The record is a 68-nucleotide sequence from Bacillus sp. J14TS2, which matches "Bacillaceae-1 RNA" in Rfam. The family has 95 seed sequences and 5,721 matches in Rfam 15.1. The match comes from Rfam's covariance-model search (64 bits).

RNA sequence: UUUAGAGGAUCUUCUGCUAAGAUCGCUCACAUCCUGUGAGCAACGCAGAAGUCAGCACCUCCUGUGCA
Numbered sequence: 001u002u003u004a005g006a007g008g009a010u011c012u013u014c015u016g017c018u019a020a021g022a023u024c025g026c027u028c029a030c031a032u033c034c035u036g037u038g039a040g041c042a043a044c045g046c047a048g049a050a051g052u053c054a055g056c057a058c059c060u061c062c063u064g065u066g067c068a
Base pairs, nucleotide, nucleotide: 011051012050013049014048015047016046017045026040027039028038029037030036055067056066057065058064